[Rfam]
RNA sequence: GUCCAUGGUCAAAGAUUUGUUAUCGAAGCUUACGAACGGAUCAGAUAUUUCUGAUCACACUUAAAUGCUUUGGGGAAAGUCUCCGGCCGCAAUAGUGGAAACGCAGCGGAUUCUUCAAUCUGUUUUGGGAAUUGAUUUCUGAUUACGAGUAUAAGUUGUAUCUGAAGAAAGGUUAAGACCAUCAUUGAAACGAUGCUGAUCUAUUUUGGAUCUCAGUGAGGCCUCUGGUCUUCAGCAUUGAAUUUAUGUCAUUGGUUUUGACUUGACUUCUGAUGCUUUAAGCAAAUAUGAGAGUCAGCUAGUCGAUUUUCUUAUCGCUGGGUUGGAUUACCAUACCUAUGUUACUUACUUCGGCAAUGGAAUUGUUUGGUAUUCUAAACGAUAGAUAUAACAAAUGAUUAAACGUAUUGUUUAAUCAACCCAAUGGAGCUCACUCUUGGCCAAUGGA
Numbered sequence: 001g002u003c004c005a006u007g008g009u010c011a012a013a014g015a016u017u018u019g020u021u022a023u024c025g026a027a028g029c030u031u032a033c034g035a036a037c038g039g040a041u042c043a044g045a046u047a048u049u050u051c052u053g054a055u056c057a058c059a060c061u062u063a064a065a066u067g068c069u070u071u072g073g074g075g076a077a078a079g080u081c082u083c084c085g086g087c088c089g090c091a092a093u094a095g096u097g098g099a100a101a102c103g104c105a106g107c108g109g110a111u112u113c114u115u116c117a118a119u120c121u122g123u124u125u126u127g128g129g130a131a132u133u134g135a136u137u138u139c140u141g142a143u144u145a146c147g148a149g150u151a152u153a154a155g156u157u158g159u160a161u162c163u164g165a166a167g168a169a170a171g172g173u174u175a176a177g178a179c180c181a182u183c184a185u186u187g188a189a190a191c192g193a194u195g196c197u198g199a200u201c202u203a204u205u206u207u208g209g210a211u212c213u214c215a216g217u218g219a220g221g222c223c224u225c226u227g228g229u230c231u232u233c234a235g236c237a238u239u240g241a242a243u244u245u246a247u248g249u250c251a252u253u254g255g256u257u258u259u260g261a262c263u264u265g266a267c268u269u270c271u272g273a274u275g276c277u278u279u280a281a282g283c284a285a286a287u288a289u290g291a292g293a294g295u296c297a298g299c300u301a302g303u304c305g306a307u308u309u310u311c312u313u314a315u316c317g318c319u320g321g322g323u324u325g326g327a328u329u330a331c332c333a334u335a336c337c338u339a340u341g342u343u344a345c346u347u348a349c350u351u352c353g354g355c356a357a358u359g360g361a362a363u364u365g366u367u368u369g370g371u372a373u374u375c376u377a378a379a380c381g382a383u384a385g386a387u388a389u390a391a392c393a394a395a396u397g398a399u400u401a402a403a404c405g406u407a408u409u410g411u412u413u414a415a416u417c418a419a420c421c422c423a424a425u426g427g428a429g430c431u432c433a434c435u436c437u438u439g440g441c442c443a444a445u446g447g448a
Base pairs, nucleotide, nucleotide: 002448003447004446005445006444008441009440010439011438012437015396016395017394018393019392020391023073024072025071026070027069028068029067039056040055041054042053043052044051045050078431079430081429082428083427084426095104096103097102106123107122108121109120110119111118302367304365308362309361310360311359313357317355318354319353320352329348398416399415400414401413402412403411

Rfam assigns this 448-nucleotide sequence from Hyphopichia burtonii to the family "RNase MRP". Rfam links the family to the GO terms ribonuclease MRP activity, rRNA processing and ribonuclease MRP complex. The match comes from Rfam's covariance-model search (106 bits). The base pairs follow the family's consensus structure, which is taken from published work. Clan: RNaseP clan. A reference for the family is Schmitt et al. (1993), "Secondary structure of RNase MRP RNA as predicted by phylogenetic comparison", FASEB J.